[Rfam]
RNA sequence: GCUGCUCGAAUAAUAUCACACACCUCUCCGUGGUGGGCAGCAGGCAACGAUCUUAUGAUCGGCGAAGAUGUGAAG
Numbered sequence: 001g002c003u004g005c006u007c008g009a010a011u012a013a014u015a016u017c018a019c020a021c022a023c024c025u026c027u028c029c030g031u032g033g034u035g036g037g038c039a040g041c042a043g044g045c046a047a048c049g050a051u052c053u054u055a056u057g058a059u060c061g062g063c064g065a066a067g068a069u070g071u072g073a074a075g
Stems, first nucleotide, its partner, number of pairs: 001041007022034003048061005